Shown here is a 122-nucleotide RNA from Rhamnella rubrinervis, a member of the family "MIR396 microRNA precursor family".

RNA sequence: CUUUGUAUUCUUCCACAGCUUUCUUGAACUGCAUCUACGAGAUCUUUUGCAUGUGAAAUAGGGUCGUAUAGACUCUCUUGGCUUUGGUUGCGGUUCAAUAAAGCUGUGGGAAGAUACAUAUA
Numbered sequence: 001c002u003u004u005g006u007a008u009u010c011u012u013c014c015a016c017a018g019c020u021u022u023c024u025u026g027a028a029c030u031g032c033a034u035c036u037a038c039g040a041g042a043u044c045u046u047u048u049g050c051a052u053g054u055g056a057a058a059u060a061g062g063g064u065c066g067u068a069u070a071g072a073c074u075c076u077c078u079u080g081g082c083u084u085u086g087g088u089u090g091c092g093g094u095u096c097a098a099u100a101a102a103g104c105u106g107u108g109g110g111a112a113g114a115u116a117c118a119u120a121u122a
Stems, first nucleotide, its partner, number of pairs: 004118004013109003017105006024098004029093005

For this family Rfam cites "Computational identification of plant microRNAs and their targets, including a stress-induced miRNA" (Jones-Rhoades and Bartel, Mol Cell, 2004). The match comes from Rfam's covariance-model search (90 bits). Rfam links the family to the GO terms RISC complex and miRNA-mediated post-transcriptional gene silencing.